[Rfam]
RNA: 23S methyl RNA motif
Organism: Loigolactobacillus coryniformis
RNA sequence: UUUUCAUUAACUUUUAUCAGAAUAACCUUUAAGUUUUGAUAAAAAUUGGUGAUUAAAACUUCACUAACGUACUGUCUCGCCGUGCCCACACCGAGAUGGUACGUUUUCCA
Numbered sequence: 001u002u003u004u005c006a007u008u009a010a011c012u013u014u015u016a017u018c019a020g021a022a023u024a025a026c027c028u029u030u031a032a033g034u035u036u037u038g039a040u041a042a043a044a045a046u047u048g049g050u051g052a053u054u055a056a057a058a059c060u061u062c063a064c065u066a067a068c069g070u071a072c073u074g075u076c077u078c079g080c081c082g083u084g085c086c087c088a089c090a091c092c093g094a095g096a097u098g099g100u101a102c103g104u105u106u107u108c109c110a
Base pairs, nucleotide, nucleotide: 004052005051006050007049008048009047010046012044013043014042015041016040017039018038019037020036021035022034023033066105067104068103069102070101071100072099073098074097075096076095077094078093079092082091083090084089